[Rfam]
RNA sequence: AGAAGGAGCGCGGCAUUCGGCAUCUCGAAAGGGGUGUCGAACCGCAGGUGACGCGCUUCUCGAUCGGUUUCCUACACUGGGAAGUGGUUGCGAACCAUUAAAGCAAAAGCCGUCACCCCUGGUCGAGCGCAACGACUUAACACUGCGGGCGCAAGCCAACGCAGUCGGUUGAUUCUGCAAGGAGUCACCGUUGAUCUCGGAGGAUUCGGAGGGCGUAAGCUGCCCUAGCCGGACGCAAAGCGGACGGGUCCGAUGAGGUCGAAAGCAAGAUCAGCAGGGAUGAAAUGCCACAUCUUAAAAAAGGCAGUCGUGCUGGAUACGCCGCAGUGAGAGCCGCGAGCGUGGACAAAGCGGGAACACCGGCUAGCUGCCGGGAGAUAUCCGCGCAAAGGCCAGCGAUGACGGCAUAGUCUCAGCCC
Numbered sequence: 001a002g003a004a005g006g007a008g009c010g011c012g013g014c015a016u017u018c019g020g021c022a023u024c025u026c027g028a029a030a031g032g033g034g035u036g037u038c039g040a041a042c043c044g045c046a047g048g049u050g051a052c053g054c055g056c057u058u059c060u061c062g063a064u065c066g067g068u069u070u071c072c073u074a075c076a077c078u079g080g081g082a083a084g085u086g087g088u089u090g091c092g093a094a095c096c097a098u099u100a101a102a103g104c105a106a107a108a109g110c111c112g113u114c115a116c117c118c119c120u121g122g123u124c125g126a127g128c129g130c131a132a133c134g135a136c137u138u139a140a141c142a143c144u145g146c147g148g149g150c151g152c153a154a155g156c157c158a159a160c161g162c163a164g165u166c167g168g169u170u171g172a173u174u175c176u177g178c179a180a181g182g183a184g185u186c187a188c189c190g191u192u193g194a195u196c197u198c199g200g201a202g203g204a205u206u207c208g209g210a211g212g213g214c215g216u217a218a219g220c221u222g223c224c225c226u227a228g229c230c231g232g233a234c235g236c237a238a239a240g241c242g243g244a245c246g247g248g249u250c251c252g253a254u255g256a257g258g259u260c261g262a263a264a265g266c267a268a269g270a271u272c273a274g275c276a277g278g279g280a281u282g283a284a285a286u287g288c289c290a291c292a293u294c295u296u297a298a299a300a301a302a303g304g305c306a307g308u309c310g311u312g313c314u315g316g317a318u319a320c321g322c323c324g325c326a327g328u329g330a331g332a333g334c335c336g337c338g339a340g341c342g343u344g345g346a347c348a349a350a351g352c353g354g355g356a357a358c359a360c361c362g363g364c365u366a367g368c369u370g371c372c373g374g375g376a377g378a379u380a381u382c383c384g385c386g387c388a389a390a391g392g393c394c395a396g397c398g399a400u401g402a403c404g405g406c407a408u409a410g411u412c413u414c415a416g417c418c419c
Base pairs, nucleotide, nucleotide: 004060005059006058007057008056009055010045011044012043013042017040018039019038020037021036022035023034024033025032047117048116049115050114051113052112053111103178104177119274120273121272122271123270124269127266133310134309135308136307137306142165143164144163145162146161147160148157149156150155166190167189168188169187173183174182175181193260194259195258196257197256206247207246208245229243230242231241287305288304289303312397313396314395315394316393318344319343320342321341322340323338324337345412346411347410351385352384353383354382355381404418405417406416